[Rfam]
RNA sequence: ACGGGCCGCAUAGCGCCGGGACCGGAGACGGUUGACGAGGCUGGCAGUGAUCGAAGGAUUCGGCGGAUGCUGCCACGGAGUAGUGAAUCGAAAGAGGGAAUGGAAAAAGCGGAAUCAAAACCGUAACAGAGCUUCUCUCACUCACCAGG
Numbered sequence: 001a002c003g004g005g006c007c008g009c010a011u012a013g014c015g016c017c018g019g020g021a022c023c024g025g026a027g028a029c030g031g032u033u034g035a036c037g038a039g040g041c042u043g044g045c046a047g048u049g050a051u052c053g054a055a056g057g058a059u060u061c062g063g064c065g066g067a068u069g070c071u072g073c074c075a076c077g078g079a080g081u082a083g084u085g086a087a088u089c090g091a092a093a094g095a096g097g098g099a100a101u102g103g104a105a106a107a108a109g110c111g112g113a114a115u116c117a118a119a120a121c122c123g124u125a126a127c128a129g130a131g132c133u134u135c136u137c138u139c140a141c142u143c144a145c146c147a148g149g
Base pairs, nucleotide, nucleotide: 020033021032022031023030024029042075043074044073045072046071051063052062053061054060076090077089078088094139095138096137097136098135099134100133109124110123111122112121

This 149-nucleotide RNA from Oribacterium sp. oral taxon 078 belongs to the Rfam family "glmS glucosamine-6-phosphate activated ribozyme aptamer". It scores 55 bits against the family's covariance model. Taxonomically the source falls in Oribacterium sp. oral taxon 078 (Bacteria, Bacillati, Clostridia, Lachnospirales).